[Rfam]
RNA: c-di-AMP riboswitch aptamer (ydaO/yuaA leader)
RNA sequence: GCAACCAACACGCUGAAUUCCCUGAAGGGAAACGGGGGACCCAAUCUUCAGGGGUGAAUCCCACGUAAGUGGGUAGGGCUAGUCUCUUUCGGCCCGAACCCGUCAGCUAACCUCGUAAGCGUGGAAAGAGGGUUUAU
Numbered sequence: 001g002c003a004a005c006c007a008a009c010a011c012g013c014u015g016a017a018u019u020c021c022c023u024g025a026a027g028g029g030a031a032a033c034g035g036g037g038g039a040c041c042c043a044a045u046c047u048u049c050a051g052g053g054g055u056g057a058a059u060c061c062c063a064c065g066u067a068a069g070u071g072g073g074u075a076g077g078g079c080u081a082g083u084c085u086c087u088u089u090c091g092g093c094c095c096g097a098a099c100c101c102g103u104c105a106g107c108u109a110a111c112c113u114c115g116u117a118a119g120c121g122u123g124g125a126a127a128g129a130g131g132g133u134u135u136a137u
Base pairs, nucleotide, nucleotide: 011121012120013119014118018031019030020029032116033115034114035113036112037111042051052101053100054099060073061072062071063070076095077094078093079092